[Rfam]
RNA sequence: GGCCUCGGGGAUCGACGCUGGUCGGCGAGGUUUCGCCCACCGGCGCUUUUUCC
Numbered sequence: 001g002g003c004c005u006c007g008g009g010g011a012u013c014g015a016c017g018c019u020g021g022u023c024g025g026c027g028a029g030g031u032u033u034c035g036c037c038c039a040c041c042g043g044c045g046c047u048u049u050u051u052c053c
Base pairs, nucleotide, nucleotide: 016045017044018043019042020041021040022039025036026035027034028033
RNA: ffh sRNA